Rfam assigns this 134-nucleotide RNA sequence from Enhydra lutris to the family "Small nucleolar RNA SNORA71". Gene Ontology terms of the family: nucleolus and RNA processing. The match comes from Rfam's covariance-model search (144 bits). Taxonomically the source falls in Enhydra lutris (Eukaryota, Gnathostomata, Teleostomi, Euteleostomi). The base pairs follow the family's consensus structure, which was predicted with PFOLD. A reference for the family is Ganot et al. (1997), "The family of box ACA small nucleolar RNAs is defined by an evolutionarily conserved secondary structure and ubiquitous sequence elements essential for RNA accumulation", Genes Dev. It is annotated as an H/ACA-box small nucleolar RNA. The members of this family belong to the H/ACA class of snoRNAs which bind a number of proteins (including dyskerin, Gar1p and Nop10p) to form snoRNP complexes. This class of snoRNAs are thought to guide the sites of modification of uridines to pseudouridines by forming direct base pairing interactions with substrate RNAs. This family includes U71 (SNORA71), ACA39 (SNORA39) and ACA60 (SNORA60). U71 and ACA60 are predicted to guide the pseudouridylation of U406 and U1004 in 18S rRNA respectively. There is currently no target RNA identified for ACA39. The family has 40 seed sequences and 1,805 matches in Rfam 15.1.

RNA sequence: ACCUGCAUUCGAAAGUGAUCAUGGUCUGUCUGUGUCCUGGUCAUUGAUAGUGCAGGGAGAGGAGUUGCUGAAAGCGCUUCCCCAUGUUUGGAGGGUCCCUUCUUGUCCCUUCCAAACUCUGGAGCUUUCCCACA
Numbered sequence: 001a002c003c004u005g006c007a008u009u010c011g012a013a014a015g016u017g018a019u020c021a022u023g024g025u026c027u028g029u030c031u032g033u034g035u036c037c038u039g040g041u042c043a044u045u046g047a048u049a050g051u052g053c054a055g056g057g058a059g060a061g062g063a064g065u066u067g068c069u070g071a072a073a074g075c076g077c078u079u080c081c082c083c084a085u086g087u088u089u090g091g092a093g094g095g096u097c098c099c100u101u102c103u104u105g106u107c108c109c110u111u112c113c114a115a116a117c118u119c120u121g122g123a124g125c126u127u128u129c130c131c132a133c134a
Base pairs, nucleotide, nucleotide: 002056003055004054005053006052007051008050009049014045015044016043017042018041019040020039021038023037024036026034067131070129071128072127073126074125075124086117087116088115089114090113091111092110093109094108095107